[Rfam]
RNA sequence: GGUGUACGAUAGACUCACCUCCACAUGGUGCACACUGGGCAACGUAUGCUCAUACGGCAAAAAAGUUUAU
Numbered sequence: 001g002g003u004g005u006a007c008g009a010u011a012g013a014c015u016c017a018c019c020u021c022c023a024c025a026u027g028g029u030g031c032a033c034a035c036u037g038g039g040c041a042a043c044g045u046a047u048g049c050u051c052a053u054a055c056g057g058c059a060a061a062a063a064a065g066u067u068u069a070u
Base pairs, nucleotide, nucleotide: 001036002035003034004033005032007030017029018028019027043056044055045054046053047052
Notes: This 70-nucleotide sequence from Rodentolepis nana belongs to the Rfam family "HDV ribozyme from F. prausnitzii". The family has 48 seed sequences and 3,803 matches in Rfam 15.1. Gene Ontology term of the family: catalytic activity. The source organism's lineage runs through Eukaryota, Protostomia, Spiralia, Neodermata and Rodentolepis. It scores 48 bits against the family's covariance model.